This 68-nucleotide sequence from Dipodomys ordii belongs to the Rfam family "mir-290 microRNA precursor family". NCBI's taxonomy places the organism under Eukaryota, Deuterostomia, Craniata, Boreoeutheria, Dipodomys. A reference for the family is Houbaviy et al. (2003), "Embryonic stem cell-specific MicroRNAs", Dev Cell.
[Rfam]
RNA sequence: GGGACACUCAAAUGUGGCAGCGCUCUUCUGUAAUCAAGGUAGAAAGUGCUACGACAUUUGAGGGUCGC
Numbered sequence: 001g002g003g004a005c006a007c008u009c010a011a012a013u014g015u016g017g018c019a020g021c022g023c024u025c026u027u028c029u030g031u032a033a034u035c036a037a038g039g040u041a042g043a044a045a046g047u048g049c050u051a052c053g054a055c056a057u058u059u060g061a062g063g064g065u066c067g068c
Base pairs, nucleotide, nucleotide: 004065005064007062008061009060010059011058012057014055015054017052019050020049021048022047023046024045026044027043028042
A search with the family's covariance model found it, with a score of 52 bits. Its Rfam clan is "mir-290 clan".